The record is a 102-nucleotide RNA sequence from Niallia circulans, which matches "Purine riboswitch aptamer" in Rfam.
Its family is annotated with purine nucleobase biosynthetic process in the Gene Ontology.

RNA sequence: UUAAAAGAAUAGAUAGAACCUUGUAUAAAUUCAAGAAUAUGGCUUGAAAGUUUCUACCAGCUACCAAUAAAUAGCUUGUCUACAAGGAAUGGAAAUUUUAUA
Numbered sequence: 001u002u003a004a005a006a007g008a009a010u011a012g013a014u015a016g017a018a019c020c021u022u023g024u025a026u027a028a029a030u031u032c033a034a035g036a037a038u039a040u041g042g043c044u045u046g047a048a049a050g051u052u053u054c055u056a057c058c059a060g061c062u063a064c065c066a067a068u069a070a071a072u073a074g075c076u077u078g079u080c081u082a083c084a085a086g087g088a089a090u091g092g093a094a095a096u097u098u099u100a101u102a
Base pairs, nucleotide, nucleotide: 019087020086021085022084023083024082025081030048031047032046033045034044035043058078059077060075061074062073063072